[Rfam]
RNA: SmY spliceosomal RNA
RNA sequence: GAUCUCAUUUACAGAGAAUCAGGGCCUUAUCCAAGACCCGUAGUGGGAAUUUUUGGGUACCCUUACGAGAGUAGGGGUU
Numbered sequence: 001g002a003u004c005u006c007a008u009u010u011a012c013a014g015a016g017a018a019u020c021a022g023g024g025c026c027u028u029a030u031c032c033a034a035g036a037c038c039c040g041u042a043g044u045g046g047g048a049a050u051u052u053u054u055g056g057g058u059a060c061c062c063u064u065a066c067g068a069g070a071g072u073a074g075g076g077g078u079u
Base pairs, nucleotide, nucleotide: 022039023038024037026035027034028033059078060077061076062075063074064073065072066071